The family of this 215-nucleotide sequence from Rhodocyclus tenuis is "permuted transfer-messenger RNA".

[Rfam]
RNA sequence: GGUUGUAAUUCCGGCAAUCUGGAGGCGUUCUGGACGCGGGUUCGAUUCCCGCCACCUCCACCCAAGCGUUUUGAAGGUCUGAGCAGCACGUUUGGGUGGGGGUGCAUUGGUUUCGACAGGGCGGGCGAAGGUGAGCAGGCAACUCGUCAGGCGAUCGACGUUAAUGAAGCAAAUCUACAAACGCCAACGAUGAGCGUUUCGCACUGGCCGCUUAA
Numbered sequence: 001g002g003u004u005g006u007a008a009u010u011c012c013g014g015c016a017a018u019c020u021g022g023a024g025g026c027g028u029u030c031u032g033g034a035c036g037c038g039g040g041u042u043c044g045a046u047u048c049c050c051g052c053c054a055c056c057u058c059c060a061c062c063c064a065a066g067c068g069u070u071u072u073g074a075a076g077g078u079c080u081g082a083g084c085a086g087c088a089c090g091u092u093u094g095g096g097u098g099g100g101g102g103u104g105c106a107u108u109g110g111u112u113u114c115g116a117c118a119g120g121g122c123g124g125g126c127g128a129a130g131g132u133g134a135g136c137a138g139g140c141a142a143c144u145c146g147u148c149a150g151g152c153g154a155u156c157g158a159c160g161u162u163a164a165u166g167a168a169g170c171a172a173a174u175c176u177a178c179a180a181a182c183g184c185c186a187a188c189g190a191u192g193a194g195c196g197u198u199u200c201g202c203a204c205u206g207g208c209c210g211c212u213u214a215a
Stems, first nucleotide, its partner, number of pairs: 001144005015133002026123003030119003036052005053104013145160004